[Rfam]
RNA sequence: GCGACAGGGCUACAAGGCGAUUCUCAAAAACGAGCGAGGAGCGCAUCCUCCAGUUAGGAAGAAGAAAGUCGAAGCCGACGUCGUUGUCGUGCGUUUUUUGAAAAAAC
Numbered sequence: 001g002c003g004a005c006a007g008g009g010c011u012a013c014a015a016g017g018c019g020a021u022u023c024u025c026a027a028a029a030a031c032g033a034g035c036g037a038g039g040a041g042c043g044c045a046u047c048c049u050c051c052a053g054u055u056a057g058g059a060a061g062a063a064g065a066a067a068g069u070c071g072a073a074g075c076c077g078a079c080g081u082c083g084u085u086g087u088c089g090u091g092c093g094u095u096u097u098u099u100g101a102a103a104a105a106a107c
Stems, first nucleotide, its partner, number of pairs: 001090007009082001016076002021066004031057001036050005093107004